[Rfam]
RNA sequence: AAACAGGAAGAGCAAACCUGGCGAAAGUCGGAGACACAAAGCUACAUGGUCUAAAAUGCAGACAAGUAUUACGACAGCCUGGCCGCCGUA
Number, nucleotide and partner (000 for none) at each position: 001a000002a000003a000004c000005a000006g000007g000008a000009a000010g000011a000012g037013c000014a000015a000016a000017c000018c031019u030020g029021g028022c027023g000024a000025a000026a000027g022028u021029c020030g019031g018032a000033g000034a000035c000036a000037c012038a000039a000040a000041g083042c082043u081044a000045c000046a080047u000048g078049g075050u074051c073052u000053a000054a000055a000056a069057u068058g067059c066060a000061g000062a000063c000064a000065a000066g059067u058068a057069u056070u000071a000072c000073g051074a050075c049076a000077g000078c048079c000080u046081g043082g042083c041084c000085g000086c000087c000088g000089u000090a000